[Rfam]
Nucleotides: 119
Base pairs, nucleotide, nucleotide: 002051003050004049005048006047007046008045009044014040015039016038017037019035021032058113060111061110062109063108064107071098072097073096074095076093077092079090080089081088
Number, partner (000 for none) and nucleotide at each position: 001000g002051u003050g004049c005048c006047c007046u008045u009044u010000c011000a012000a013000g014040g015039u016038u017037g018000a019035c020000g021032c022000a023000g024000u025000g026000c027000c028000u029000u030000g031000a032021g033000a034000g035019g036000c037017c038016a039015a040014c041000a042000c043000a044009g045008a046007a047006g048005g049004g050003u051002a052000g053000a054000g055000g056000a057000a058113g059000c060111c061110u062109c063108c064107a065000u066000g067000a068000a069000a070000c071098c072097c073096g074095g075000a076093g077092a078000g079090g080089g081088g082000c083000c084000g085000a086000a087000c088081c089080u090079c091000c092077u093076c094000c095074c096073c097072g098071g099000a100000u101000c102000c103000u104000g105000u106000c107064u108063g109062g110061a111060g112000u113058c114000a115000c116000a117000g118000c119000u